[Rfam]
RNA sequence: UUGACAGAAGAGAGUGAGCACACAGAGGUAUUUGUAUAAAGCUUAUGCUAAUGCUUUUGCGUGCUCACUUCUCUUUCCGUCAG
Numbered sequence: 001u002u003g004a005c006a007g008a009a010g011a012g013a014g015u016g017a018g019c020a021c022a023c024a025g026a027g028g029u030a031u032u033u034g035u036a037u038a039a040a041g042c043u044u045a046u047g048c049u050a051a052u053g054c055u056u057u058u059g060c061g062u063g064c065u066c067a068c069u070u071c072u073c074u075u076u077c078c079g080u081c082a083g
Base pairs, nucleotide, nucleotide: 001083002082003081004080005079007077008076009075010073011072012071013069014068015067016066017065018064019063020062021061023059024058025057

A member of the RNA family "mir-156 microRNA precursor family" from Gossypium klotzschianum, 83 nucleotides long. The family has 10 seed sequences and 1,401 matches in Rfam 15.1. This family represents the plant microRNA (miRNA) precursor mir-156. For this family Rfam cites "microRNAs: tiny regulators with great potential" (Ambros, Cell, 2001). A search with the family's covariance model found it, with a score of 72 bits. Its family is annotated with miRNA-mediated post-transcriptional gene silencing and RISC complex in the Gene Ontology.